Rfam assigns this 75-nucleotide RNA from Anopheles gambiae to the family "mir-278 microRNA precursor family". Rfam's curators put it in the seed alignment. Its family is annotated with RISC complex and miRNA-mediated post-transcriptional gene silencing in the Gene Ontology. NCBI's taxonomy places the organism under Eukaryota, Metazoa, Allotriocarida, Dicondylia, gambiae species complex.
RNA sequence: GGUACGGACGGACGAUAGUCUUCAACGACCGUUCCGUUUGACACGAGGUCGGUGGGACUUUCGUCCGUUUGUAAG
Number, nucleotide and partner (000 for none) at each position: 001g000002g000003u073004a072005c071006g070007g069008a000009c067010g066011g065012a064013c063014g062015a061016u000017a059018g058019u057020c056021u055022u000023c054024a053025a000026c051027g050028a049029c048030c047031g000032u000033u000034c000035c000036g000037u000038u000039u000040g000041a000042c000043a000044c000045g000046a000047g030048g029049u028050c027051g026052g000053u024054g023055g021056g020057a019058c018059u017060u000061u015062c014063g013064u012065c011066c010067g009068u000069u007070u006071g005072u004073a003074a000075g000

The base pairs follow the family's consensus structure, which was predicted with RNAalifold. The literature on the family includes a 2007 paper in Genome Res by Stark et al., "Systematic discovery and characterization of fly microRNAs using 12 Drosophila genomes".